[Rfam]
RNA sequence: UUGCGGUGAUGACACUCUCAACUGUGGUUUCAACUUGCUGAAAGCUGCAUGAGGACACUGAAUUCCUUGGCUGUGUCUGAGCAG
Number, nucleotide and partner (000 for none) at each position: 001u084002u083003g082004c081005g000006g000007u000008g000009a000010u000011g000012a000013c000014a000015c000016u000017c000018u000019c000020a000021a000022c000023u000024g000025u000026g000027g000028u000029u000030u000031c000032a000033a000034c000035u000036u000037g000038c000039u000040g000041a000042a000043a000044g000045c000046u000047g000048c000049a000050u000051g000052a000053g000054g000055a000056c000057a000058c000059u000060g000061a000062a000063u000064u000065c000066c000067u000068u000069g000070g000071c000072u000073g000074u000075g000076u000077c000078u000079g000080a000081g004082c003083a002084g001
RNA: Small nucleolar RNA SNORD53/SNORD92
Organism: Crotophaga sulcirostris